Overview: This 114-nucleotide sequence belongs to the Rfam family "Potassium channel RNA editing signal". About the family: This family represents a group of sequences related to the human potassium channel Kv1.1 hairpin element which directs the efficient modification of an adenosine to inosine by an adenosine deaminase acting on RNA (ADAR). The ADAR modification causes an isoleucine/valine recoding event which lies in the ion-conducting pore of the potassium channel.
[Rfam]
RNA sequence: GUGGGGUACGGAGACAUGCGUCCCGUGGGAGUGUGGGGUAAGAUUGUGGGCUCAUUAUGUGCUAUCGCAGGCGUGCUAACAAUAGCGCUUCCGGUUCCAGUGAUAGUUUCUAAU
Numbered sequence: 001g002u003g004g005g006g007u008a009c010g011g012a013g014a015c016a017u018g019c020g021u022c023c024c025g026u027g028g029g030a031g032u033g034u035g036g037g038g039u040a041a042g043a044u045u046g047u048g049g050g051c052u053c054a055u056u057a058u059g060u061g062c063u064a065u066c067g068c069a070g071g072c073g074u075g076c077u078a079a080c081a082a083u084a085g086c087g088c089u090u091c092c093g094g095u096u097c098c099a100g101u102g103a104u105a106g107u108u109u110c111u112a113a114u
Stems, first nucleotide, its partner, number of pairs: 001114002004111002008107002011104001014101002018097001020095002037077004049063003

The family's RNA type in Rfam is cis-regulatory element.